[Rfam]
Nucleotides: 102
Base pairs, nucleotide, nucleotide: 006090007089008088009087010086011052012051013050014049017026018025019024033046034045035044036043037042058083059082060081064077065076066075067074
Number, partner (000 for none) and nucleotide at each position: 001000u002000a003000c004000c005000g006090a007089c008088g009087a010086c011052a012051g013050g014049g015000g016000a017026g018025c019024c020000c021000c022000u023000c024019g025018g026017c027000u028000g029000a030000g031000a032000g033046u034045g035044c036043g037042c038000g039000c040000c041000a042037g043036c044035g045034c046033a047000g048000a049014c050013c051012c052011u053000a054000c055000g056000a057000a058083c059082c060081u061000g062000a063000u064077c065076c066075g067074g068000u069000u070000a071000g072000c073000a074067c075066c076065g077064g078000c079000g080000a081060a082059g083058g084000g085000a086010g087009u088008c089007g090006u091000a092000u093000c094000u095000c096000u097000c098000a099000c100000g101000u102000a
Shown here is a 102-nucleotide RNA sequence from Actinorhabdospora filicis, a member of the family "TPP riboswitch aptamer (THI element)".